[Rfam]
RNA sequence: GAUGCAAGUAAACCUGUUCUUCUUCGCAUUCUUUUUUAUCCUCCUCUAGCGGGAGGCAUUUCGUCAUUGAAUAAGAAUGCGAAGACGAAUAAUAAAGCCUCCCGAAAGGGAGGUUUUUUUUUA
Numbered sequence: 001g002a003u004g005c006a007a008g009u010a011a012a013c014c015u016g017u018u019c020u021u022c023u024u025c026g027c028a029u030u031c032u033u034u035u036u037u038a039u040c041c042u043c044c045u046c047u048a049g050c051g052g053g054a055g056g057c058a059u060u061u062c063g064u065c066a067u068u069g070a071a072u073a074a075g076a077a078u079g080c081g082a083a084g085a086c087g088a089a090u091a092a093u094a095a096a097g098c099c100u101c102c103c104g105a106a107a108g109g110g111a112g113g114u115u116u117u118u119u120u121u122u123a
Stems, first nucleotide, its partner, number of pairs: 016090004021085013036070003042054004055065003094117010
RNA: Phenylalanine leader peptide